Shown here is an 89-nucleotide RNA sequence from Citrus unshiu, a member of the family "Small nucleolar RNA R12". Lineage of the source: Eukaryota > Streptophyta > Pentapetalae > rosids > Citrus. snoR12 is a C/D box small nucleolar RNA, which acts as a methylation guide for 25S ribosomal RNA in plants. snoR12 has been alternatively named snoZ44 in Arabidopsis and snoZ131 in rice. For this family Rfam cites "The high diversity of snoRNAs in plants: identification and comparative study of 120 snoRNA genes from Oryza sativa" (Chen et al., Nucleic Acids Res, 2003). The family's consensus secondary structure was predicted with PFOLD. Rfam classes the family as a C/D-box small nucleolar RNA. The family has 9 seed sequences and 992 matches in Rfam 15.1.
RNA sequence: UGGAUGGAUGAUGAAAUAAAUCAGACGGAUUCCCAAUGAUUUUGUUUUAAUCAAAAUAUGAUAUUAACAACCAGCUACUUCUGACUCCA
Numbered sequence: 001u002g003g004a005u006g007g008a009u010g011a012u013g014a015a016a017u018a019a020a021u022c023a024g025a026c027g028g029a030u031u032c033c034c035a036a037u038g039a040u041u042u043u044g045u046u047u048u049a050a051u052c053a054a055a056a057u058a059u060g061a062u063a064u065u066a067a068c069a070a071c072c073a074g075c076u077a078c079u080u081c082u083g084a085c086u087c088c089a
Stems, first nucleotide, its partner, number of pairs: 001089004006085001
Dot-bracket structure: ((((.(..............................................................................)))))